[Rfam]
RNA: sodF sRNA
RNA sequence: CCGCCCUGCCUCGUGAUCGUCUUCUCACCCUUUCGCGUGGCAGGCGGACGAAGAGGAGGACCCCCGCGAGGAGCAAGCUCGCGGGGGUCUUCC
Numbered sequence: 001c002c003g004c005c006c007u008g009c010c011u012c013g014u015g016a017u018c019g020u021c022u023u024c025u026c027a028c029c030c031u032u033u034c035g036c037g038u039g040g041c042a043g044g045c046g047g048a049c050g051a052a053g054a055g056g057a058g059g060a061c062c063c064c065c066g067c068g069a070g071g072a073g074c075a076a077g078c079u080c081g082c083g084g085g086g087g088u089c090u091u092c093c
Base pairs, nucleotide, nucleotide: 001047002046003045005044006043007042008041009040010039013036014035015034016033019029055093056092057091058090059089060088061087062086063085064084065083066082067081068080069079070078